[Rfam]
RNA sequence: GAAACACCCCUAUGGAGCAGGACUUGCUUCAGUAAGGUUUUGGUGCUCACUGAGUCUUCCUCUUGAGUGUGUCUCU
Numbered sequence: 001g002a003a004a005c006a007c008c009c010c011u012a013u014g015g016a017g018c019a020g021g022a023c024u025u026g027c028u029u030c031a032g033u034a035a036g037g038u039u040u041u042g043g044u045g046c047u048c049a050c051u052g053a054g055u056c057u058u059c060c061u062c063u064u065g066a067g068u069g070u071g072u073c074u075c076u
Base pairs, nucleotide, nucleotide: 001075002074004072005071006070007069009067011065012064014062015061017059019057021056022055023054029053030052031051032050033049035047036046037044038043
mir-9229 microRNA precursor family: a 76-nucleotide RNA sequence from Myotis davidii. The base pairs follow the family's consensus structure, which was predicted with RNAalifold. NCBI's taxonomy places the organism under Eukaryota, Gnathostomata, Euteleostomi, Boreoeutheria, Myotis.